[Rfam]
RNA sequence: GGUCUCCCUCUGCUGGGCGAUGGAUCAUGGAGCCCCGAGAUCGAUUGCCCUGCAGAGGGAGGCC
Numbered sequence: 001g002g003u004c005u006c007c008c009u010c011u012g013c014u015g016g017g018c019g020a021u022g023g024a025u026c027a028u029g030g031a032g033c034c035c036c037g038a039g040a041u042c043g044a045u046u047g048c049c050c051u052g053c054a055g056a057g058g059g060a061g062g063c064c
Base pairs, nucleotide, nucleotide: 001064002063003062004061005060006059007058008057009056010055011054012053013052015050016049017048018047019046020045021044023042024041025040026039028037029036030035
Shown here is a 64-nucleotide sequence from Myotis lucifugus, a member of the family "mir-9242 microRNA precursor family".
The base pairs follow the family's consensus structure, which was predicted with RNAalifold.
NCBI's taxonomy places the organism under Eukaryota, Vertebrata, Sarcopterygii, Vespertilionidae, Myotis.
The family has 2 seed sequences and 940 matches in Rfam 15.1.
Its family is annotated with RISC complex and miRNA-mediated post-transcriptional gene silencing in the Gene Ontology.